[Rfam]
RNA sequence: AUGACUGGAUGAGGCGCAAAGAUCAUUAGUACUUAAUCAUACGAAGAACCUGUAAGUUCGUGAUAAGGAAAGGGAGAUUUGCCGAAAUGGUUUAUAUUUUGCAGAAUAUAAACUGUUGGGCUGUAUAUGAAGAAUAGACAGACUGCCGUUUUAUAAGUAGACGACCUAAUAAUUGAAUAGGUAAUCUACUUUACGGAGUGCUUCCGCUUGU
Numbered sequence: 001a002u003g004a005c006u007g008g009a010u011g012a013g014g015c016g017c018a019a020a021g022a023u024c025a026u027u028a029g030u031a032c033u034u035a036a037u038c039a040u041a042c043g044a045a046g047a048a049c050c051u052g053u054a055a056g057u058u059c060g061u062g063a064u065a066a067g068g069a070a071a072g073g074g075a076g077a078u079u080u081g082c083c084g085a086a087a088u089g090g091u092u093u094a095u096a097u098u099u100u101g102c103a104g105a106a107u108a109u110a111a112a113c114u115g116u117u118g119g120g121c122u123g124u125a126u127a128u129g130a131a132g133a134a135u136a137g138a139c140a141g142a143c144u145g146c147c148g149u150u151u152u153a154u155a156a157g158u159a160g161a162c163g164a165c166c167u168a169a170u171a172a173u174u175g176a177a178u179a180g181g182u183a184a185u186c187u188a189c190u191u192u193a194c195g196g197a198g199u200g201c202u203u204c205c206g207c208u209u210g211u
Stems, first nucleotide, its partner, number of pairs: 006206004011201001016082005023075002032067004037063003086117012118144002121141004126136003146196004
Shown here is a 211-nucleotide RNA from Marinilactibacillus sp. 15R, a member of the family "Lysine riboswitch aptamer". The base pairs follow the family's consensus structure, which is taken from published work. A search with the family's covariance model found it, with a score of 92 bits.